[Rfam]
RNA sequence: GGAUAGCACUAUUUUGCUAUCCCCGACCAAUAAUGUUAUGACAUACGUGAUAAUACUUCCACAUGUCAUAGCAUUAUUGACCGGGAAUAGCAAAACAGUGUUAUCC
Numbered sequence: 001g002g003a004u005a006g007c008a009c010u011a012u013u014u015u016g017c018u019a020u021c022c023c024c025g026a027c028c029a030a031u032a033a034u035g036u037u038a039u040g041a042c043a044u045a046c047g048u049g050a051u052a053a054u055a056c057u058u059c060c061a062c063a064u065g066u067c068a069u070a071g072c073a074u075u076a077u078u079g080a081c082c083g084g085g086a087a088u089a090g091c092a093a094a095a096c097a098g099u100g101u102u103a104u105c106c
Base pairs, nucleotide, nucleotide: 002105003104004103005102012095013094014093015092016091017090018089019088020087022085023084024083025082028079029078030077031076032075033074034073035072036071037070038069039068040067041066042065043064044063047060049058050057
Shown here is a 106-nucleotide RNA from Prunus avium, a member of the family "MIR6274 microRNA precursor family". Taxonomically the source falls in Prunus (Eukaryota, Viridiplantae, Streptophytina, Amygdaloideae). Rfam links the family to the GO terms RISC complex and miRNA-mediated post-transcriptional gene silencing. Pairs were carried over by alignment from the consensus structure, which was predicted with RNAalifold.